[Rfam]
RNA sequence: GCCGCAAUCGCGGUGUACAGGGUUCAGUUAUAUAAAGCCUCGAUUUAUCGGGGUUUUUUGUUAUCUGACUUCAGAAUAACUGGGCUAUAUGCCCUUUUUUU
Numbered sequence: 001g002c003c004g005c006a007a008u009c010g011c012g013g014u015g016u017a018c019a020g021g022g023u024u025c026a027g028u029u030a031u032a033u034a035a036a037g038c039c040u041c042g043a044u045u046u047a048u049c050g051g052g053g054u055u056u057u058u059u060g061u062u063a064u065c066u067g068a069c070u071u072c073a074g075a076a077u078a079a080c081u082g083g084g085c086u087a088u089a090u091g092c093c094c095u096u097u098u099u100u101u
Stems, first nucleotide, its partner, number of pairs: 034057009082094004
Source information
Shown here is a 101-nucleotide RNA from Buttiauxella agrestis, a member of the family "Gammaprotebacteria rimP leader". It is annotated as a cis-regulatory leader. The match comes from Rfam's covariance-model search (97 bits). Its family is annotated with regulation of gene expression in the Gene Ontology.